The family of this 80-nucleotide RNA from Alligator mississippiensis is "Mammalian CPEB3 ribozyme".

RNA sequence: AGAGGUCACAAAUUUGAGGCCAUAGAAGUAGCCCUAAUGGCAUGGCCCUGUCAGAUUCCAACAAAUCUGUGAAUUCUGCU
Numbered sequence: 001a002g003a004g005g006u007c008a009c010a011a012a013u014u015u016g017a018g019g020c021c022a023u024a025g026a027a028g029u030a031g032c033c034c035u036a037a038u039g040g041c042a043u044g045g046c047c048c049u050g051u052c053a054g055a056u057u058c059c060a061a062c063a064a065a066u067c068u069g070u071g072a073a074u075u076c077u078g079c080u
Stems, first nucleotide, its partner, number of pairs: 016048001018047004024080002027077002030074001031041003052069006
Rfam links the family to the GO term RNA nuclease activity.